[Rfam]
RNA: RAGATH-18 RNA
Organism: Clostridium senegalense
RNA sequence: CCUUUGAAGUGCUGUAUCAACCAAAGUAGCUUAUGCAAAAUGGAAUACGUUGAAUAAGGAA
Number, nucleotide and partner (000 for none) at each position: 001c059002c058003u057004u056005u000006g000007a000008a000009g048010u047011g046012c000013u044014g000015u000016a000017u000018c000019a000020a000021c043022c042023a041024a000025a000026g000027u000028a000029g036030c035031u000032u000033a000034u000035g030036c029037a000038a000039a000040a000041u023042g022043g021044a013045a000046u011047a010048c009049g000050u000051u000052g000053a000054a000055u000056a004057a003058g002059g001060a000061a000